[Rfam]
RNA sequence: GCUACCGAGGAGCGUUGCGACCUGGGGGACCCACGAUCGUGGGGGCGCCCCAGGCCAGGCUCGGUGGCCGGGUCGACCUCACAACGGCGCUCACUCACG
Numbered sequence: 001g002c003u004a005c006c007g008a009g010g011a012g013c014g015u016u017g018c019g020a021c022c023u024g025g026g027g028g029a030c031c032c033a034c035g036a037u038c039g040u041g042g043g044g045g046c047g048c049c050c051c052a053g054g055c056c057a058g059g060c061u062c063g064g065u066g067g068c069c070g071g072g073u074c075g076a077c078c079u080c081a082c083a084a085c086g087g088c089g090c091u092c093a094c095u096c097a098c099g
Base pairs, nucleotide, nucleotide: 002067003066004065005064006063007062008061021054022053023052024051025050026049